[Rfam]
RNA sequence: CAUGCACGCCGGUCAGCGAGGUUUCGCCCACCGGCGUUUUUUG
Numbered sequence: 001c002a003u004g005c006a007c008g009c010c011g012g013u014c015a016g017c018g019a020g021g022u023u024u025c026g027c028c029c030a031c032c033g034g035c036g037u038u039u040u041u042u043g
Stems, first nucleotide, its partner, number of pairs: 007036007016027004
Shown here is a 43-nucleotide RNA from Novosphingobium barchaimii, a member of the family "ffh sRNA".
The base pairs follow the family's consensus structure, which is taken from published work.
Taxonomically the source falls in Novosphingobium barchaimii (Bacteria, Alphaproteobacteria, Sphingomonadales, Sphingomonadaceae).